[Rfam]
RNA sequence: GAAAUUGCAUGACAAUGAGAAAGAGCACGCAUGUACACAAUCACGACCGUUUCAUGAAUACUUACAAGCGUGCUCUCUCUCAUUGUCAAACAAUU
Numbered sequence: 001g002a003a004a005u006u007g008c009a010u011g012a013c014a015a016u017g018a019g020a021a022a023g024a025g026c027a028c029g030c031a032u033g034u035a036c037a038c039a040a041u042c043a044c045g046a047c048c049g050u051u052u053c054a055u056g057a058a059u060a061c062u063u064a065c066a067a068g069c070g071u072g073c074u075c076u077c078u079c080u081c082a083u084u085g086u087c088a089a090a091c092a093a094u095u
Base pairs, nucleotide, nucleotide: 010088011087012086013085014084016082017081020078023075025073026072027071028070029069030068032066033065034064

MIR535 microRNA precursor family: a 95-nucleotide RNA sequence from Quercus lobata. The match comes from Rfam's covariance-model search (79 bits). For this family Rfam cites "Conservation and divergence of microRNAs and their functions in Euphorbiaceous plants" (Zeng et al., Nucleic Acids Res, 2010). Pairs were carried over by alignment from the consensus structure, which was predicted with RNAalifold.